RNA sequence: UCCAGUGGUGGUCAGCUGUCUUUGUCAAUACCAUGUCUGCGACAGUGUUACACUACUGGAAGAUAAAAGUGCUGUCUGGUUUUGCUGUGUGUCAUUGUCUUCGUUCUGGAGAUCACUGACAACCAGUGUGGGGCAGCACUGUGCUUUACUGAGAGUGUGCAGAGCAGUUACCAUCCUGUUCAGCACUAGUCUGGAAGCAUACACA
Numbered sequence: 001u002c003c004a005g006u007g008g009u010g011g012u013c014a015g016c017u018g019u020c021u022u023u024g025u026c027a028a029u030a031c032c033a034u035g036u037c038u039g040c041g042a043c044a045g046u047g048u049u050a051c052a053c054u055a056c057u058g059g060a061a062g063a064u065a066a067a068a069g070u071g072c073u074g075u076c077u078g079g080u081u082u083u084g085c086u087g088u089g090u091g092u093c094a095u096u097g098u099c100u101u102c103g104u105u106c107u108g109g110a111g112a113u114c115a116c117u118g119a120c121a122a123c124c125a126g127u128g129u130g131g132g133g134c135a136g137c138a139c140u141g142u143g144c145u146u147u148a149c150u151g152a153g154a155g156u157g158u159g160c161a162g163a164g165c166a167g168u169u170a171c172c173a174u175c176c177u178g179u180u181c182a183g184c185a186c187u188a189g190u191c192u193g194g195a196a197g198c199a200u201a202c203a204c205a
Stems, first nucleotide, its partner, number of pairs: 001060009011051002015046006021039001024036002069139009084129002088125001090121005096115002098112005141200007157186003162181006